[Rfam]
RNA: Histone 3' UTR stem-loop
Organism: Pangasianodon hypophthalmus
RNA sequence: CCAACGGCUCUUUUAAGAGCCACCCACUCCUUCAUAUAAAGAGCA
Dot-bracket structure: .....((((((....))))))........................